RNA: Iron response element I
RNA sequence: CUGCCUCUUGCGUCAACCGUGUUUGGACAGAACAG
Numbered sequence: 001c002u003g004c005c006u007c008u009u010g011c012g013u014c015a016a017c018c019g020u021g022u023u024u025g026g027a028c029a030g031a032a033c034a035g
Base pairs, nucleotide, nucleotide: 001035002034003033006031007030008029010028013026014025015024016023017021
Dot-bracket structure: (((..(((.(..(((((...).)))).)))).)))